[Rfam]
RNA sequence: UUUCCAUCGAGACCGGCUGAGGGACAGGCCCGAAGAAGCCGGGGCAACCGGAGGCGGACAUCACGUCCGGCUCAACGGUGCCAAGUCCUGCGGGGGCCUUCGGGCUUACCGGCAGAUGGUCC
Numbered sequence: 001u002u003u004c005c006a007u008c009g010a011g012a013c014c015g016g017c018u019g020a021g022g023g024a025c026a027g028g029c030c031c032g033a034a035g036a037a038g039c040c041g042g043g044g045c046a047a048c049c050g051g052a053g054g055c056g057g058a059c060a061u062c063a064c065g066u067c068c069g070g071c072u073c074a075a076c077g078g079u080g081c082c083a084a085g086u087c088c089u090g091c092g093g094g095g096g097c098c099u100u101c102g103g104g105c106u107u108a109c110c111g112g113c114a115g116a117u118g119g120u121c122c
Stems, first nucleotide, its partner, number of pairs: 004119005013042005021031003025090004043082004048078002051073003086114001091111003095107002
RNA: SAM riboswitch aptamer (S box leader)
Organism: Sphingomonas kaistensis